[Rfam]
RNA sequence: UCUUUAACGAGAAACGAUGCUCAUUCACUUUACCGCCCAAUUGCAAUGGACGACUGAAGGGGAAAGAGUAACGAGAAAAAUAUCGCCGAAAUACGUCUCAUACUGAGCUGUCUGUCAUAUAGACAGUUUGGAUUCUGCGUUUUCGAUACAACC
Number, nucleotide and partner (000 for none) at each position: 001u000002c000003u000004u000005u000006a000007a000008c000009g000010a000011g000012a000013a000014a000015c000016g072017a000018u000019g069020c068021u000022c000023a000024u000025u000026c000027a000028c059029u058030u000031u056032a055033c000034c052035g051036c000037c049038c048039a000040a000041u000042u000043g000044c000045a000046a000047u000048g038049g037050a000051c035052g034053a000054c000055u032056g031057a000058a029059g028060g000061g000062g000063a000064a000065a000066g000067a000068g020069u019070a000071a000072c016073g000074a000075g000076a000077a000078a000079a000080a000081u000082a000083u000084c000085g147086c000087c145088g144089a143090a000091a000092u000093a140094c139095g138096u000097c000098u000099c000100a000101u000102a000103c131104u130105g129106a000107g127108c126109u125110g124111u123112c122113u121114g120115u119116c000117a000118u000119a115120u114121a113122g112123a111124c110125a109126g108127u107128u000129u105130g104131g103132a000133u000134u000135c000136u000137g000138c095139g094140u093141u000142u000143u089144c088145g087146a000147u085148a000149c000150a000151a000152c000153c000
The family of this 153-nucleotide RNA from Metschnikowia pulcherrima is "Small nucleolar RNA snR8". The match comes from Rfam's covariance-model search (54 bits). The literature on the family includes a 1988 paper in Mol Cell Biol by Parker et al., "Genetic analysis of small nuclear RNAs in Saccharomyces cerevisiae: viable sextuple mutant". Gene Ontology terms of the family: RNA processing and nucleolus. The organism belongs to Metschnikowia, within Eukaryota.